mir-9230 microRNA precursor family: an 87-nucleotide sequence from Cnephaeus nilssonii. The family's consensus secondary structure was predicted with RNAalifold. Its family is annotated with miRNA-mediated post-transcriptional gene silencing and RISC complex in the Gene Ontology.

RNA sequence: CCGACUGCUCUGAACUCCAGUUCCGGGCGAGACUCUGGGGAUCCAGACUCAUACAGGGAGAAACUGGACUGUCUGGCAGUGGGCGGA
Numbered sequence: 001c002c003g004a005c006u007g008c009u010c011u012g013a014a015c016u017c018c019a020g021u022u023c024c025g026g027g028c029g030a031g032a033c034u035c036u037g038g039g040g041a042u043c044c045a046g047a048c049u050c051a052u053a054c055a056g057g058g059a060g061a062a063a064c065u066g067g068a069c070u071g072u073c074u075g076g077c078a079g080u081g082g083g084c085g086g087a
Stems, first nucleotide, its partner, number of pairs: 001086002005082005010076003014072002016068006022059003027052001029050003034047005